Shown here is a 501-nucleotide part of an RNA from Gossypium aridum, a member of the family "Eukaryotic large subunit ribosomal RNA". The organism belongs to Gossypium, within Eukaryota. It scores 2355 bits against the family's covariance model. The family's consensus secondary structure is taken from published work.
[Rfam]
RNA sequence: UAGAACAAUAUAGGCAAGGGAAGUAGGAAAACUAGAUCCAUAACCUCAGGAAAAGGAUUGGCUCUGAGGGUUGGGCACAGGGGUCCUAGUCCCGAACCCAUCGGUUACUGGUACACUGCUUAAGCACUCCCGCGAUGAGAGCAAGUCGCCUCGUGCUGGUCGGGGAUGGACUGGGAAUGACUCCCUCAAUGGCCUUCCCUAGACGACGAACAGUCGACUCAGAAUUGUUAUGGACAAGGGGAAUCUGACUGUUUAAUUAAAACAAAGCAUUGCUAUGGUCCCUACGGAUGCUCAGGCAAUGUGAUUUCUGCCUAGUGCUUUGAAUGUCAAAGUGAAGAAAUUCAACCAAGCGUGGGUAAACAACGGGAGUGCCUAUAGUCUCUUAAGGUAGUCGAAUGCCUCAUCAUCUAAUUAGUGACGUGCAUGAAUGGAUUAAUGAGAUUCCCACUGUCCCUGUUUACUAUCCAAUGAAACCACAGCCAAGGGAACGGGCUUGGCAGA
Number, nucleotide and partner (000 for none) at each position: 001u467002a000003g465004a464005a000006c000007a000008a000009u000010a000011u460012a459013g458014g457015c456016a455017a000018g453019g452020g451021a000022a000023g000024u000025a000026g000027g000028a000029a000030a000031a000032c000033u000034a000035g059036a058037u057038c056039c055040a000041u000042a000043a000044c049045c000046u000047c000048a000049g044050g000051a000052a000053a000054a000055g039056g038057a037058u036059u035060g226061g225062c000063u223064c222065u221066g220067a219068g218069g215070g214071u213072u212073g211074g000075g204076c000077a000078c000079a200080g199081g198082g197083g196084u176085c175086c174087u000088a172089g171090u170091c169092c000093c000094g000095a000096a000097c164098c163099c162100a000101u159102c158103g157104g156105u155106u000107a000108c000109u000110g150111g149112u148113a000114c000115a000116c000117u143118g142119c141120u139121u138122a000123a136124g000125c134126a000127c132128u000129c000130c000131c000132g127133c000134g125135a000136u123137g000138a121139g120140a000141g119142c118143a117144a000145g000146u000147c000148g112149c111150c110151u000152c000153g000154u000155g105156c104157u103158g102159g101160u000161c000162g099163g098164g097165g000166a000167u000168g000169g091170a090171c089172u088173g000174g086175g085176a084177a000178u000179g000180a000181c000182u000183c000184c000185c000186u000187c000188a000189a000190u000191g000192g000193c000194c000195u000196u083197c082198c081199c080200u079201a000202g000203a000204c075205g000206a000207c000208g000209a000210a000211c073212a072213g071214u070215c069216g000217a000218c068219u067220c066221a065222g064223a063224a000225u061226u060227g231228u000229u000230a000231u227232g000233g000234a000235c000236a000237a000238g000239g446240g445241g444242a443243a442244u441245c440246u438247g437248a000249c000250u264251g263252u262253u000254u000255a000256a000257u000258u000259a000260a000261a000262a252263c251264a250265a000266a000267g302268c301269a300270u299271u298272g297273c296274u295275a000276u000277g000278g289279u288280c287281c286282c000283u000284a000285c000286g281287g280288a279289u278290g000291c000292u000293c000294a000295g274296g273297c272298a271299a270300u269301g268302u267303g000304a000305u000306u432307u431308c430309u000310g364311c000312c000313u000314a000315g361316u360317g357318c356319u355320u354321u000322g353323a000324a000325u352326g351327u350328c000329a000330a000331a000332g000333u344334g343335a342336a341337g000338a000339a000340a000341u336342u335343c334344a333345a000346c000347c000348a000349a000350g327351c326352g325353u322354g320355g319356g318357u317358a000359a000360a316361c315362a000363a000364c310365g382366g381367g380368a379369g000370u377371g000372c000373c000374u000375a000376u000377a370378g000379u368380c367381u366382c365383u387384u000385a000386a000387g383388g000389u000390a000391g000392u000393c000394g000395a000396a000397u000398g000399c000400c000401u000402c000403a000404u418405c417406a416407u415408c000409u000410a000411a000412u000413u000414a000415g407416u406417g405418a404419c000420g000421u000422g000423c000424a000425u000426g000427a000428a000429u000430g308431g307432a306433u000434u000435a000436a000437u247438g246439a000440g245441a244442u243443u242444c241445c240446c239447a000448c000449u000450g000451u020452c019453c018454c000455u016456g015457u014458u013459u012460a011461c000462u000463a000464u004465c003466c000467a001468a000469u000470g000471a000472a000473a000474c000475c000476a000477c000478a000479g000480c497481c496482a495483a494484g493485g000486g000487a000488a000489c000490g000491g000492g000493c484494u483495u482496g481497g480498c000499a000500g000501a000